Rfam assigns this 135-nucleotide RNA from Thiospirochaeta perfilievii to the family "FMN riboswitch aptamer (RFN element)". The organism belongs to Thiospirochaeta, within Bacteria. Pairs were carried over by alignment from the consensus structure, which is taken from published work. The RFN element is a highly conserved domain that is found frequently in the 5'-untranslated regions of prokaryotic mRNAs that encode for flavin mononucleotide (FMN) biosynthesis and transport proteins. This element is a metabolite-dependent riboswitch that directly binds FMN in the absence of proteins. In Bacillus subtilis, the riboswitch most likely controls gene expression by causing premature transcription termination within the 5' untranslated region of the ribDEAHT operon and precluding access to the ribosome-binding site of ypaA mRNA.The FMN riboswitch structure, reported in present an FMN-bound six-stem junction, adopts a butterfly-like scaffold, stapled together by opposingly directed but nearly identically folded peripheral domains.
[Rfam]
RNA sequence: CUUAAUUUUCAGGGUAGGGUGAGCGAAAGCAAUUCCCAACUGGUGGUUAUAGUCCACGACUCCGUUUGUUUACAUUCGGACUGACUUGGUGAAAUUCCAAGACCAACGGUAUAGUCCGGAUGGAAGAAAAUAGCU
Numbered sequence: 001c002u003u004a005a006u007u008u009u010c011a012g013g014g015u016a017g018g019g020u021g022a023g024c025g026a027a028a029g030c031a032a033u034u035c036c037c038a039a040c041u042g043g044u045g046g047u048u049a050u051a052g053u054c055c056a057c058g059a060c061u062c063c064g065u066u067u068g069u070u071u072a073c074a075u076u077c078g079g080a081c082u083g084a085c086u087u088g089g090u091g092a093a094a095u096u097c098c099a100a101g102a103c104c105a106a107c108g109g110u111a112u113a114g115u116c117c118g119g120a121u122g123g124a125a126g127a128a129a130a131u132a133g134c135u
Stems, first nucleotide, its partner, number of pairs: 003133001005131006017037003039115002041105002043057004052103002061080002085101005107118003
Dot-bracket structure: ..(.((((((......(((...............))).[[((((((.....[[))))...((................))....(((((.......)))))]])).(((....]]))).......)))))).)..